[Rfam]
RNA sequence: GGUCAUGAGCGCCAGCGCGUAGCCCCGGCUUGCUGGCCGGCAACCCUCCUCCGCGGUGGGGUGCCCCGGGUGAGGACCGGGCACCGGAGCGACAUCCGGUGCAAGCGUGGCCU
Numbered sequence: 001g002g003u004c005a006u007g008a009g010c011g012c013c014a015g016c017g018c019g020u021a022g023c024c025c026c027g028g029c030u031u032g033c034u035g036g037c038c039g040g041c042a043a044c045c046c047u048c049c050u051c052c053g054c055g056g057u058g059g060g061g062u063g064c065c066c067c068g069g070g071u072g073a074g075g076a077c078c079g080g081g082c083a084c085c086g087g088a089g090c091g092a093c094a095u096c097c098g099g100u101g102c103a104a105g106c107g108u109g110g111c112c113u
Base pairs, nucleotide, nucleotide: 001078002077003076004075009038011037012036013035014034015033016032021030022029039065040064041063044061045060046059048056049055081102082101083100084099085098086097087096088095